[Rfam]
RNA sequence: UAGUAAAUGUAAGUGUGUCCCAUGCAAUAUUUAGGACAUACUUAUACUAAAA
Numbered sequence: 001u002a003g004u005a006a007a008u009g010u011a012a013g014u015g016u017g018u019c020c021c022a023u024g025c026a027a028u029a030u031u032u033a034g035g036a037c038a039u040a041c042u043u044a045u046a047c048u049a050a051a052a
Stems, first nucleotide, its partner, number of pairs: 006048001008046005014040003018036003022031001
Dot-bracket structure: .....(.(((((.(((.(((.(........)..))).))).))))).)....
mir-1302 microRNA precursor family: a 52-nucleotide RNA sequence from Myotis lucifugus. The base pairs follow the family's consensus structure, which was predicted with WAR. The match comes from Rfam's covariance-model search (63 bits). Rfam 15.1 lists 16,160 matches to the family in 135 species. Rfam links the family to the GO terms RISC complex and miRNA-mediated post-transcriptional gene silencing.